[Rfam]
RNA: Bacterial RNase P class A
RNA sequence: CGGGCUGGCCGGGCGGCCGCGGCACCCUCGGGUGUCGAGGAAGGUCCGGACUCCACAGGGCAGGGCGGUGGGCAACACCCACCCGGGGCGACCCGCGGGACAGUGCCACAGAGAACAGACCGCCUCCGCUCCUCCGGGAGCGGCGGUAAGGGUGAAACGGUGGUGCAAGAGACCACCAGCGCGGCGGGCGACCGCCGCGGCUAGGCAAACCCCGCCCGGAGCAAGGUCAAGAAGGGUCGAGCACGCUCGGCCUGCGUGGAUCGAGCGGCCCGCUCGAGGAUCCACGGGUGGACCGCAGGAGGCGGCCGGCAACGGUCGUCGUAGAUGGAUGGCCGCCGAACGGGGAAGGCGACGACCCCGGGAACAGGAUCCGGCCUACAGGCCAGCCCGUCCG
Numbered sequence: 001c002g003g004g005c006u007g008g009c010c011g012g013g014c015g016g017c018c019g020c021g022g023c024a025c026c027c028u029c030g031g032g033u034g035u036c037g038a039g040g041a042a043g044g045u046c047c048g049g050a051c052u053c054c055a056c057a058g059g060g061c062a063g064g065g066c067g068g069u070g071g072g073c074a075a076c077a078c079c080c081a082c083c084c085g086g087g088g089c090g091a092c093c094c095g096c097g098g099g100a101c102a103g104u105g106c107c108a109c110a111g112a113g114a115a116c117a118g119a120c121c122g123c124c125u126c127c128g129c130u131c132c133u134c135c136g137g138g139a140g141c142g143g144c145g146g147u148a149a150g151g152g153u154g155a156a157a158c159g160g161u162g163g164u165g166c167a168a169g170a171g172a173c174c175a176c177c178a179g180c181g182c183g184g185c186g187g188g189c190g191a192c193c194g195c196c197g198c199g200g201c202u203a204g205g206c207a208a209a210c211c212c213c214g215c216c217c218g219g220a221g222c223a224a225g226g227u228c229a230a231g232a233a234g235g236g237u238c239g240a241g242c243a244c245g246c247u248c249g250g251c252c253u254g255c256g257u258g259g260a261u262c263g264a265g266c267g268g269c270c271c272g273c274u275c276g277a278g279g280a281u282c283c284a285c286g287g288g289u290g291g292a293c294c295g296c297a298g299g300a301g302g303c304g305g306c307c308g309g310c311a312a313c314g315g316u317c318g319u320c321g322u323a324g325a326u327g328g329a330u331g332g333c334c335g336c337c338g339a340a341c342g343g344g345g346a347a348g349g350c351g352a353c354g355a356c357c358c359c360g361g362g363a364a365c366a367g368g369a370u371c372c373g374g375c376c377u378a379c380a381g382g383c384c385a386g387c388c389c390g391u392c393c394g
Base pairs, nucleotide, nucleotide: 001390002389003388004387005386006385007384008383009382010381011379012337013336014335015334016333017332018331020037021036022035023034024033025032026031042377043376044375046374047373048372049371050370051221052220053219054218058271059270060269061268063217064216065215066214067213068082069081070080071079072078083097084095085094086093087092098212099211103210104209105206106205107204120151121150122147123146124145126143127142128141129140130139131138132137159177160176161175162174163173164172179201180199181198182197183196184195185194186193187192225294226293227292228291235282236281237280238279262276263275264274265273266272301320302319303318304317305316306315307314308313